[Rfam]
The family of this 104-nucleotide RNA from Methyloradius palustris is "Guanidine-I riboswitch aptamer". The match comes from Rfam's covariance-model search (89 bits). The pairing is the family consensus, mapped onto this sequence. Its family is annotated with regulation of gene expression in the Gene Ontology. This family represents a conserved RNA structure found upstream of the ykkC and yxkD genes in Bacillus subtilis and related genes in other bacteria.
RNA sequence: CAAAAAGAUCACUAGGGUUCCGUCUUUUGUUUUUAUAAAGAGUCUGGUCCGAGAGCGGUCGGCCAAAUUGAUUGGCUACACGGAGGGAUAAAAGCCCGGGAGAC
Dot-bracket structure: ......((((.(..((...((((((((.........)))))..).)).))....).))))((((((.....)))))).(.[...(((.......))).)..]..
Numbered sequence: 001c002a003a004a005a006a007g008a009u010c011a012c013u014a015g016g017g018u019u020c021c022g023u024c025u026u027u028u029g030u031u032u033u034u035a036u037a038a039a040g041a042g043u044c045u046g047g048u049c050c051g052a053g054a055g056c057g058g059u060c061g062g063c064c065a066a067a068u069u070g071a072u073u074g075g076c077u078a079c080a081c082g083g084a085g086g087g088a089u090a091a092a093a094g095c096c097c098g099g100g101a102g103a104c
Stems, first nucleotide, its partner, number of pairs: 007060004012055001015050002020047002022044001023041005061077006079099001081102001085097003